A member of the RNA family "RtT RNA" from Enterobacter sp. 638, 135 nucleotides long.
Rfam describes the family as follows. This family represents a bacterial cis-regulatory element known as RtT RNA. The exact function of RtT is unknown although it is thought that it may be involved in changing the cellular response in relation to amino acid starvation.
On this family, see Bosl and Kersten, Nucleic Acids Res 1991: "A novel RNA product of the tyrT operon of Escherichia coli".
RNA sequence: GCAUUCUGCGAGCUGAAAAGGAUGAGAACCUCCGGGGAAAGAGGUUCGACUCCAGCGGAGCGAGAGAACGUUGCGUGAGCAACGGUCCGAAGUCCGACAGGACGGCCUCCAUCAUCAAAUUUUUACACCCGCGAA
Numbered sequence: 001g002c003a004u005u006c007u008g009c010g011a012g013c014u015g016a017a018a019a020g021g022a023u024g025a026g027a028a029c030c031u032c033c034g035g036g037g038a039a040a041g042a043g044g045u046u047c048g049a050c051u052c053c054a055g056c057g058g059a060g061c062g063a064g065a066g067a068a069c070g071u072u073g074c075g076u077g078a079g080c081a082a083c084g085g086u087c088c089g090a091a092g093u094c095c096g097a098c099a100g101g102a103c104g105g106c107c108u109c110c111a112u113c114a115u116c117a118a119a120u121u122u123u124u125a126c127a128c129c130c131g132c133g134a135a
Base pairs, nucleotide, nucleotide: 015126017124018123019122020121021120023118033096034095036094037093045091046090047089048088052062069084070083071082072081073080074079
It is one of the family's seed sequences.